This 144-nucleotide sequence from Tianweitania sediminis belongs to the Rfam family "Alphaproteobacterial sRNA BjrC1505".
[Rfam]
RNA sequence: GGUCUCCCUUAACGAUAUAUUAAGCUUUACGAGUGUUUACUGUGAUCAUCCAGUGACGCUGGAUUCAUGCUGAGUGGCCUGUCCCACUUCGUUUGAUGCCUCCCUGUUAGACUCCUGAGAGCCGCUUCCCGCGGCUCUUUUUUU
Numbered sequence: 001g002g003u004c005u006c007c008c009u010u011a012a013c014g015a016u017a018u019a020u021u022a023a024g025c026u027u028u029a030c031g032a033g034u035g036u037u038u039a040c041u042g043u044g045a046u047c048a049u050c051c052a053g054u055g056a057c058g059c060u061g062g063a064u065u066c067a068u069g070c071u072g073a074g075u076g077g078c079c080u081g082u083c084c085c086a087c088u089u090c091g092u093u094u095g096a097u098g099c100c101u102c103c104c105u106g107u108u109a110g111a112c113u114c115c116u117g118a119g120a121g122c123c124g125c126u127u128c129c130c131g132c133g134g135c136u137c138u139u140u141u142u143u144u
Stems, first nucleotide, its partner, number of pairs: 001047004005015002021039005072089006095108004117139009
Overview
The match comes from Rfam's covariance-model search (60 bits). The organism belongs to Tianweitania, within Bacteria. On this family, see Madhugiri et al., RNA Biol 2012: "Small RNAs of the Bradyrhizobium/Rhodopseudomonas lineage and their analysis".